A member of the RNA family "Ascomycota telomerase RNA" from Cordyceps javanica, 176 nucleotides of a longer RNA. Rfam 15.1 lists 475 matches to the family in 456 species. The match comes from Rfam's covariance-model search (242 bits).
[Rfam]
RNA sequence: UCCCCCGCUGAUUGCCCCGCGGCAUCAGUAUAUUCCUCUACUUCUGGUUCUCCUUUCCGAAGACGAGAUGAAAGCGCGUUUUUUAUGGAUGUAUUUUGUGCGUGCGGCAACGCUUCCCUUUCCCACCCCAUUCGGGUAGGUUUCGGAUGGGAAUGAAUCAAAAACUAGUCCUUGCG
Dot-bracket structure: ......((((((.(((....)))))))))....(((((..........................)))..))................(((((.(((((..............(.((((......(.....((((((.....)))))))))))..)...)))))))..)))......
Numbered sequence: 001u002c003c004c005c006c007g008c009u010g011a012u013u014g015c016c017c018c019g020c021g022g023c024a025u026c027a028g029u030a031u032a033u034u035c036c037u038c039u040a041c042u043u044c045u046g047g048u049u050c051u052c053c054u055u056u057c058c059g060a061a062g063a064c065g066a067g068a069u070g071a072a073a074g075c076g077c078g079u080u081u082u083u084u085a086u087g088g089a090u091g092u093a094u095u096u097u098g099u100g101c102g103u104g105c106g107g108c109a110a111c112g113c114u115u116c117c118c119u120u121u122c123c124c125a126c127c128c129c130a131u132u133c134g135g136g137u138a139g140g141u142u143u144c145g146g147a148u149g150g151g152a153a154u155g156a157a158u159c160a161a162a163a164a165c166u167a168g169u170c171c172u173u174g175c176g
Stems, first nucleotide, its partner, number of pairs: 007029006014023003034071002036067003088170003091165002094163005113155001115152004125148001131147006